[Rfam]
RNA sequence: GCGGGGCGCGUCUAGGGUUCCGCCGACGUCCGCGCUGGACUGGCCGGGUCUGGUCCGAGAGACGCAGGCGGAGUAGCGGCGAUCGGCUCCGUUCCACGGCGGGAGAAAAGCCCGGGAGGC
Dot-bracket structure: .......(((((..((...((((((.(...............).)))..).)).))....))))).((((((((...........)))))))).(.[...(((.......))).)..]..
RNA: Guanidine-I riboswitch aptamer
Organism: Actinospica acidithermotolerans